[Rfam]
The family of this 67-nucleotide RNA sequence from Lentibacillus sp. CBA3610 is "Bacillaceae-1 RNA". Taxonomically the source falls in Lentibacillus (Bacteria, Bacillati, Bacilli, Bacillaceae).
RNA sequence: AGCAAAGGAACAAAGGCUAAAUUCGUCACGUCCUGUGACAACGCCUUUGUGACCCGCAUCGUGCGGG
Numbered sequence: 001a002g003c004a005a006a007g008g009a010a011c012a013a014a015g016g017c018u019a020a021a022u023u024c025g026u027c028a029c030g031u032c033c034u035g036u037g038a039c040a041a042c043g044c045c046u047u048u049g050u051g052a053c054c055c056g057c058a059u060c061g062u063g064c065g066g067g
Stems, first nucleotide, its partner, number of pairs: 011049007025039005053067005